[Rfam]
RNA sequence: AAGAAGUGGAAACCAGAACCCACUUUAAUAAACGGGGCGGGACCGAAAAGCCUUACGAGUAGGAGAUUU
Number, nucleotide and partner (000 for none) at each position: 001a000002a000003g000004a000005a000006g023007u022008g021009g020010a000011a000012a000013c000014c000015a000016g000017a000018a000019c000020c009021c008022a007023c006024u000025u000026u000027a000028a000029u000030a000031a000032a000033c000034g000035g000036g052037g051038c050039g000040g000041g000042a000043c063044c062045g000046a000047a000048a000049a000050g038051c037052c036053u000054u000055a000056c000057g000058a000059g000060u000061a000062g044063g043064a000065g000066a000067u000068u000069u000
RNA: DUF805 RNA